[Rfam]
RNA: HNH endonuclease-associated RNA and ORF (HEARO) RNA
Nucleotides: 223
Base pairs, nucleotide, nucleotide: 001066002065003064004063005062006061007060008059010044011043013041014040016038017037045055046054047053069210070209071208072207073206074088075087076086077085078084091204092203093202094201095200098197099196100195101194106141107140110134111133112132113131114130115129116128117127120218121217122216123215124214125213143186144185145184146183147182148181149180150179151178155177157174158173159172160171161170163168
Number, partner (000 for none) and nucleotide at each position: 001066g002065u003064c004063a005062a006061c007060u008059a009000c010044c011043c012000a013041c014040c015000a016038c017037u018000u019000a020000a021000a022000g023000c024000c025000u026000u027000g028000g029000g030000c031000u032000u033000u034000u035000g036000a037017a038016g039000u040014g041013g042000g043011g044010g045055c046054u047053u048000g049000u050000a051000a052000a053047a054046a055045g056000c057000c058000c059008u060007a061006g062005u063004u064003g065002a066001c067000u068000a069210u070209c071208c072207c073206a074088a075087g076086u077085c078084u079000u080000u081000c082000g083000a084078g085077g086076a087075c088074u089000a090000c091204g092203u093202u094201g095200g096000u097000u098197g099196g100195g101194u102000c103000a104000u105000g106141a107140c108000a109000c110134c111133u112132a113131c114130g115129a116128a117127u118000g119000c120218u121217c122216c123215u124214c125213u126000a127117g128116u129115u130114c131113g132112u133111a134110g135000c136000c137000a138000c139000u140107g141106u142000c143186g144185u145184u146183g147182a148181u149180g150179g151178u152000u153000a154000a155177a156000a157174g158173u159172c160171c161170u162000g163168a164000u165000g166000g167000g168163u169000a170161g171160g172159g173158a174157c175000g176000g177155u178151g179150c180149u181148g182147u183146c184145a185144a186143c187000a188000u189000c190000a191000c192000a193000a194101g195100c196099c197098c198000u199000u200095c201094c202093a203092a204091c205000a206073u207072g208071g209070g210069g211000g212000a213125a214124g215123a216122g217121g218120a219000a220000g221000a222000a223000c